[Rfam]
RNA: XIST RNA A repeat
RNA sequence: UGGUCCAGCCGGGCCGCGGAUACCUGCUUUGAAUUUUU
Numbered sequence: 001u002g003g004u005c006c007a008g009c010c011g012g013g014c015c016g017c018g019g020a021u022a023c024c025u026g027c028u029u030u031g032a033a034u035u036u037u038u
Base pairs, nucleotide, nucleotide: 003014004013005012006011017026018025019024